Record summary
Y RNA: a 111-nucleotide sequence from Myotis davidii. On this family, see Mosig et al., Theory Biosci 2007: "Evolution of the vertebrate Y RNA cluster".
RNA sequence: CACUGGUCCGAAUGUAGUGAGUUAUCACAAAUGCUUGUACACAGUCUGUUACAGAUUGAAAGCCUCCUUCUAUUUGCCUCCCUUCUCACUACUGCAUUUGACUAGUCUCUU
Numbered sequence: 001c002a003c004u005g006g007u008c009c010g011a012a013u014g015u016a017g018u019g020a021g022u023u024a025u026c027a028c029a030a031a032u033g034c035u036u037g038u039a040c041a042c043a044g045u046c047u048g049u050u051a052c053a054g055a056u057u058g059a060a061a062g063c064c065u066c067c068u069u070c071u072a073u074u075u076g077c078c079u080c081c082c083u084u085c086u087c088a089c090u091a092c093u094g095c096a097u098u099u100g101a102c103u104a105g106u107c108u109c110u111u
Stems, first nucleotide, its partner, number of pairs: 002106007010099002014095002016090006043073001048070001